[Rfam]
RNA sequence: UUGCACAGCGAACACCCAAGUGUGCUUUGUAGUUCCCUUGGUUUCAGUCUGUGCUAAAUUAAUCUGUGCUUUUCCUCUGCAUUGGAAGGAUUUGCAUUCCUUUUAUAUGUAUUCAGAAGGACAGAACACGC
Numbered sequence: 001u002u003g004c005a006c007a008g009c010g011a012a013c014a015c016c017c018a019a020g021u022g023u024g025c026u027u028u029g030u031a032g033u034u035c036c037c038u039u040g041g042u043u044u045c046a047g048u049c050u051g052u053g054c055u056a057a058a059u060u061a062a063u064c065u066g067u068g069c070u071u072u073u074c075c076u077c078u079g080c081a082u083u084g085g086a087a088g089g090a091u092u093u094g095c096a097u098u099c100c101u102u103u104u105a106u107a108u109g110u111a112u113u114c115a116g117a118a119g120g121a122c123a124g125a126a127c128a129c130g131c
Base pairs, nucleotide, nucleotide: 003054004053005052006051007050008049010048014044016041017040018039019038020037022035024033025032026031056070060068061067076117077116078115079114080109081108082107084104085103086102087101088100089099090098
RNA: Small nucleolar RNA SNORA22
Organism: Quiscalus mexicanus